[Rfam]
Nucleotides: 079
Base pairs, nucleotide, nucleotide: 006049007048008047009046010045011044012043015040016039017067018066019065020064025036026035027034028033056074058072059071060070
Number, partner (000 for none) and nucleotide at each position: 001000u002000c003000g004000a005000a006049c007048g008047c009046g010045c011044g012043u013000a014000a015040c016039u017067g018066g019065c020064g021000a022000a023000g024000c025036g026035u027034g028033g029000g030000g031000g032000a033028c034027c035026a036025c037000g038000a039016g040015g041000g042000a043012g044011c045010g046009c047008g048007c049006g050000g051000g052000g053000a054000u055000a056074u057000a058072g059071c060070c061000g062000u063000a064020c065019g066018c067017c068000u069000g070060g071059g072058c073000g074056a075000a076000g077000u078000g079000u

A member of the RNA family "ZMP/ZTP riboswitch aptamer (pfl RNA motif)" from Paenibacillus antri, 79 nucleotides long.